Background
The record is a 137-nucleotide RNA from Nannospalax galili, which matches "Small nucleolar RNA SNORA4" in Rfam. Rfam classes the family as an H/ACA-box small nucleolar RNA. A search with the family's covariance model found it, with a score of 105 bits. Pairs were carried over by alignment from the consensus structure, which was predicted with PFOLD. Rfam describes the family as follows. ACA4 is a member of the H/ACA class of snoRNA that guide the sites of modification of uridines to pseudouridines.

Nucleotides: 137
Base pairs, nucleotide, nucleotide: 004064005063006062007061008060012059013058015056016055017054021052022051026048028046029043030042031041032040076132077131079129080128081127082126083125090117091115092114093113095112096111097110098109099108100107
Number, partner (000 for none) and nucleotide at each position: 001000g002000u003000g004064c005063c006062a007061a008060a009000a010000g011000c012059u013058a014000a015056u016055u017054u018000g019000g020000g021052g022051g023000g024000g025000g026048g027000a028046a029043g030042g031041u032040u033000u034000u035000u036000u037000a038000a039000u040032a041031a042030c043029c044000u045000u046028u047000a048026c049000a050000a051022u052021u053000u054017g055016g056015g057000c058013u059012a060008u061007u062006u063005g064004g065000c066000a067000g068000a069000g070000c071000g072000a073000u074000u075000a076132a077131g078000a079129c080128c081127a082126c083125a084000c085000u086000c087000c088000a089000c090117a091115u092114g093113g094000g095112c096111u097110a098109u099108a100107c101000c102000a103000c104000u105000u106000a107100g108099u109098a110097u111096g112095g113093u114092c115091a116000u117090u118000a119000c120000u121000a122000u123000c124000u125083u126082g127081u128080g129079g130000c131077c132076u133000a134000c135000a136000c137000a